ivy-DE RNA: a 91-nucleotide sequence from Pseudomonas fluorescens. Taxonomically the source falls in Pseudomonas fluorescens (Bacteria, Pseudomonadales, Pseudomonadaceae, Pseudomonas).

[Rfam]
RNA sequence: UGACCAGGGGGCUGGGACGUUCUGACUGAUGAAAGUCGGAGUGACCUACGGGCACAAGGGGUGCCUGCGAAAGGGCCGGGUCAGGUAAAAG
Numbered sequence: 001u002g003a004c005c006a007g008g009g010g011g012c013u014g015g016g017a018c019g020u021u022c023u024g025a026c027u028g029a030u031g032a033a034a035g036u037c038g039g040a041g042u043g044a045c046c047u048a049c050g051g052g053c054a055c056a057a058g059g060g061g062u063g064c065c066u067g068c069g070a071a072a073g074g075g076c077c078g079g080g081u082c083a084g085g086u087a088a089a090a091g
Stems, first nucleotide, its partner, number of pairs: 001083005010077004014047003018043001020041008049067007